The family of this 134-nucleotide RNA sequence from a Roseiflexaceae bacterium is "SAM riboswitch aptamer (S box leader)".
[Rfam]
RNA sequence: UGCUCAUCACGAGGGGUGGAGGGAACGGCCCAACGAAGCCCCGGCAACCUUUUCUAAUUGCAGAUUGUUCGGCAAUCUGCAAUUUGGAACACUUAGGGGUGCCAAUUCCUGCAGCGCGAGCUGAGAGAUGAGGC
Numbered sequence: 001u002g003c004u005c006a007u008c009a010c011g012a013g014g015g016g017u018g019g020a021g022g023g024a025a026c027g028g029c030c031c032a033a034c035g036a037a038g039c040c041c042c043g044g045c046a047a048c049c050u051u052u053u054c055u056a057a058u059u060g061c062a063g064a065u066u067g068u069u070c071g072g073c074a075a076u077c078u079g080c081a082a083u084u085u086g087g088a089a090c091a092c093u094u095a096g097g098g099g100u101g102c103c104a105a106u107u108c109c110u111g112c113a114g115c116g117c118g119a120g121c122u123g124a125g126a127g128a129u130g131a132g133g134c
Base pairs, nucleotide, nucleotide: 003132004131005130006129007128008127013042014041015040016039017038021031022030023029027109028108043103044102045101046100048099049098052095107126112123113122114121115120

It scores 74 bits against the family's covariance model. Taxonomically the source falls in Roseiflexaceae (Bacteria, Bacillati, Chloroflexota, Roseiflexineae).